[Rfam]
RNA sequence: GAAAAGAAGAGUUUGAUCCUGGCUCAGAUUGAACGCUGGCGGCACGCUUAACACAUGCAAGUCGGACGGCAGCACGGGGGAGUGAUGAGCUCUCUGGGUGGCGAGUGGCGGACGGGUGAGUAAUGCAUGGGAAUCUGCCUAGCAGUGGGGGACAACCUGGGGAAACUUGGGCUAAUACCGCAUGGACCCUGAGGGGGAAAGGGCGCUGAGAGGCGUCUGCUGCUAGAUGAGCCCAUGUCCGAUUAGCUAGUUGGUGGGGUAAAAGCCUACCAAGGCGACGAUCGGUAGCUGGUCUGAGAGGAUGAUCAGCCACACUGGGACUGAGACACGGCCCAGACUCCUACGGGAGGCAGCAGUGGGGAAUCUUGGACAAUGGGCGCAAGCCUGAUCCAGCGAUGCCGCGUGGGUGAAGACGGCCUGCGGGUUGUAAAGCCCUUUCGGUGGGGAAGAAGCCUGGGGGUGACCUUAGGUUGACGUUACCCACAGAAGAAGCACCGGCUAACUCCGUGCCAGCAGCCGCGGUAAUACGGAGGGUGCGAGCGUUAAUCGGACUUACUG
Numbered sequence: 001g002a003a004a005a006g007a008a009g010a011g012u013u014u015g016a017u018c019c020u021g022g023c024u025c026a027g028a029u030u031g032a033a034c035g036c037u038g039g040c041g042g043c044a045c046g047c048u049u050a051a052c053a054c055a056u057g058c059a060a061g062u063c064g065g066a067c068g069g070c071a072g073c074a075c076g077g078g079g080g081a082g083u084g085a086u087g088a089g090c091u092c093u094c095u096g097g098g099u100g101g102c103g104a105g106u107g108g109c110g111g112a113c114g115g116g117u118g119a120g121u122a123a124u125g126c127a128u129g130g131g132a133a134u135c136u137g138c139c140u141a142g143c144a145g146u147g148g149g150g151g152a153c154a155a156c157c158u159g160g161g162g163a164a165a166c167u168u169g170g171g172c173u174a175a176u177a178c179c180g181c182a183u184g185g186a187c188c189c190u191g192a193g194g195g196g197g198a199a200a201g202g203g204c205g206c207u208g209a210g211a212g213g214c215g216u217c218u219g220c221u222g223c224u225a226g227a228u229g230a231g232c233c234c235a236u237g238u239c240c241g242a243u244u245a246g247c248u249a250g251u252u253g254g255u256g257g258g259g260u261a262a263a264a265g266c267c268u269a270c271c272a273a274g275g276c277g278a279c280g281a282u283c284g285g286u287a288g289c290u291g292g293u294c295u296g297a298g299a300g301g302a303u304g305a306u307c308a309g310c311c312a313c314a315c316u317g318g319g320a321c322u323g324a325g326a327c328a329c330g331g332c333c334c335a336g337a338c339u340c341c342u343a344c345g346g347g348a349g350g351c352a353g354c355a356g357u358g359g360g361g362a363a364u365c366u367u368g369g370a371c372a373a374u375g376g377g378c379g380c381a382a383g384c385c386u387g388a389u390c391c392a393g394c395g396a397u398g399c400c401g402c403g404u405g406g407g408u409g410a411a412g413a414c415g416g417c418c419u420g421c422g423g424g425u426u427g428u429a430a431a432g433c434c435c436u437u438u439c440g441g442u443g444g445g446g447a448a449g450a451a452g453c454c455u456g457g458g459g460g461u462g463a464c465c466u467u468a469g470g471u472u473g474a475c476g477u478u479a480c481c482c483a484c485a486g487a488a489g490a491a492g493c494a495c496c497g498g499c500u501a502a503c504u505c506c507g508u509g510c511c512a513g514c515a516g517c518c519g520c521g522g523u524a525a526u527a528c529g530g531a532g533g534g535u536g537c538g539a540g541c542g543u544u545a546a547u548c549g550g551a552c553u554u555a556c557u558g
Base pairs, nucleotide, nucleotide: 009025010024011023012022013021027548028547029546030545032544033543034542035541036540037539039402040401041400042399043398044397045395046394047360052358053357054356056355057354058353061109062108063107066106067105069102070101072099073098075096076095077094078093079092080091116313117312118311125238126237127236128235129234130233131232134230135229139226140225141224142223143222144221145220147181149179150178156171157170158169159168160167161166187196188195189194201218202217203216204215205214206213239285240284241283246276247275248274251273252272253271254270255269256268257267258266288310289309290308291307292303293302294301295300315336316335317334318333319332338349339348340347341346366392368391369390370389374387375386376385377384378383405435406434407433408432415426416425417424418423439489441484442483443482444481445480449475454469455468456467492537493536494535495534496533503532504531505530506529507528513520514519
RNA: Bacterial small subunit ribosomal RNA, nucleotides 1 to 558
Organism: Caldichromatium japonicum